[Rfam]
RNA: mir-1905 microRNA precursor family
Organism: Heterocephalus glaber
RNA sequence: UGGUCUGUUGCUGGAUGCGCUUGAUGGUUGCGCCCUUGGGUCCUACCACCAGGCCCACCACGCGGUAGGGCAC
Numbered sequence: 001u002g003g004u005c006u007g008u009u010g011c012u013g014g015a016u017g018c019g020c021u022u023g024a025u026g027g028u029u030g031c032g033c034c035c036u037u038g039g040g041u042c043c044u045a046c047c048a049c050c051a052g053g054c055c056c057a058c059c060a061c062g063c064g065g066u067a068g069g070g071c072a073c
Stems, first nucleotide, its partner, number of pairs: 004069008012060003017055001020052002023049001025048004030043001032041003